[Rfam]
RNA sequence: GAACAUUGCCCGGGGUCAGUGAAAGUCUGAACCGGCGGUGAUAGUCCGCGAACCUGCGCCAGCAGGCCGAUCCGGUGGAAAUCCGGAACCGACGGUUAAAGUCCGGAUGGGAGGCGCACAAA
Numbered sequence: 001g002a003a004c005a006u007u008g009c010c011c012g013g014g015g016u017c018a019g020u021g022a023a024a025g026u027c028u029g030a031a032c033c034g035g036c037g038g039u040g041a042u043a044g045u046c047c048g049c050g051a052a053c054c055u056g057c058g059c060c061a062g063c064a065g066g067c068c069g070a071u072c073c074g075g076u077g078g079a080a081a082u083c084c085g086g087a088a089c090c091g092a093c094g095g096u097u098a099a100a101g102u103c104c105g106g107a108u109g110g111g112a113g114g115c116g117c118a119c120a121a122a
Stems, first nucleotide, its partner, number of pairs: 007116004017029003031102002033091002035049004044089002053066002071087005093105003
RNA: FMN riboswitch aptamer (RFN element)
Organism: Propionimicrobium lymphophilum